The family of this 146-nucleotide RNA sequence from Ureibacillus yapensis is "Ribosomal protein L10 leader". Rfam classes the family as a cis-regulatory leader. It scores 76 bits against the family's covariance model. About the family: This family is a putative r-protein leader autoregulatory structure found in B. subtilis and other low-GC Gram-positive bacteria. It is located in the 5' untranslated regions of mRNAs encoding ribosomal proteins L10 and L12 (rplJ-rplL). A Rho-independent transcription terminator structure that is probably involved in regulation is included at the 3' end. Lineage of the source: Bacteria > Bacillati > Bacillota > Bacilli > Ureibacillus.
RNA sequence: UGUGAAUAUCCAUUUGUACCGUAGACAGUAGGGGUGCCUAGCACUUAAUUUUUCCCUGCCGAGGACAUCGAAAUCGGAUUCUAUUUAAGAUGAUGAAUUUUCGCCUCUAGUCUACUUUUGUGGCUAGAGGCUUUUCUUUUGUCGGU
Numbered sequence: 001u002g003u004g005a006a007u008a009u010c011c012a013u014u015u016g017u018a019c020c021g022u023a024g025a026c027a028g029u030a031g032g033g034g035u036g037c038c039u040a041g042c043a044c045u046u047a048a049u050u051u052u053u054c055c056c057u058g059c060c061g062a063g064g065a066c067a068u069c070g071a072a073a074u075c076g077g078a079u080u081c082u083a084u085u086u087a088a089g090a091u092g093a094u095g096a097a098u099u100u101u102c103g104c105c106u107c108u109a110g111u112c113u114a115c116u117u118u119u120g121u122g123g124c125u126a127g128a129g130g131c132u133u134u135u136c137u138u139u140u141g142u143c144g145g146u
Stems, first nucleotide, its partner, number of pairs: 028059006034044003103131010